Record summary: The record is a 109-nucleotide RNA sequence, which matches "drum RNA" in Rfam. The family's RNA type in Rfam is small RNA. About the family: Firmicutes, Bacteroidetes (1 example), Proteobacteria (2 examples), Spirochaetes (2 examples). The sequence is in the family's curated seed alignment.

RNA sequence: UGGCGUUGAAGCGGCAAGCUGUUUCGGGUCGCAGUUUUCCGUGGAGCUUGAUCGAGGGUUAUGUGUUACCUCAACCCGAAUAGGCAUUCGCCGAAAGAAAACACUUCAU
Numbered sequence: 001u002g003g004c005g006u007u008g009a010a011g012c013g014g015c016a017a018g019c020u021g022u023u024u025c026g027g028g029u030c031g032c033a034g035u036u037u038u039c040c041g042u043g044g045a046g047c048u049u050g051a052u053c054g055a056g057g058g059u060u061a062u063g064u065g066u067u068a069c070c071u072c073a074a075c076c077c078g079a080a081u082a083g084g085c086a087u088u089c090g091c092c093g094a095a096a097g098a099a100a101a102c103a104c105u106u107c108a109u
Base pairs, nucleotide, nucleotide: 002048003047004046011042012041013040014039016037017036018035019034020033021032022031024079025078026077027076063104064103065102083092084091085090

Record summary: The base pairs follow the family's consensus structure, which is taken from published work.